Record summary:
The family of this 107-nucleotide sequence from Colocasia esculenta is "MIR6450 microRNA precursor family".
RNA sequence: GGGACCGAAUUAUUUCGGUCCCAAAUAUAGGGACCGAAUUAUUUCGGUCCCUAUUCAGGACCGAAAUAAUUCGGUCCCUAUAUUUGGGACCGAAUAAUUUCGGUCCC
Numbered sequence: 001g002g003g004a005c006c007g008a009a010u011u012a013u014u015u016c017g018g019u020c021c022c023a024a025a026u027a028u029a030g031g032g033a034c035c036g037a038a039u040u041a042u043u044u045c046g047g048u049c050c051c052u053a054u055u056c057a058g059g060a061c062c063g064a065a066a067u068a069a070u071u072c073g074g075u076c077c078c079u080a081u082a083u084u085u086g087g088g089a090c091c092g093a094a095u096a097a098u099u100u101c102g103g104u105c106c107c
Stems, first nucleotide, its partner, number of pairs: 001107009014094011029079009043065008
The organism belongs to Colocasia, within Eukaryota.